narK RNA: an 81-nucleotide RNA sequence from Pseudomonas nitroreducens. The source organism's lineage runs through Bacteria, Pseudomonadota, Pseudomonadales, Pseudomonas and Pseudomonas nitroreducens.
RNA sequence: GGCACAGCACUUGCUCCACUCCUGAGGCUUGCGGUCCAACGGCGGAUCGCCCCGACAACCAACCAUCGACAAUGGCGUCGC
Numbered sequence: 001g002g003c004a005c006a007g008c009a010c011u012u013g014c015u016c017c018a019c020u021c022c023u024g025a026g027g028c029u030u031g032c033g034g035u036c037c038a039a040c041g042g043c044g045g046a047u048c049g050c051c052c053c054g055a056c057a058a059c060c061a062a063c064c065a066u067c068g069a070c071a072a073u074g075g076c077g078u079c080g081c
Stems, first nucleotide, its partner, number of pairs: 031050007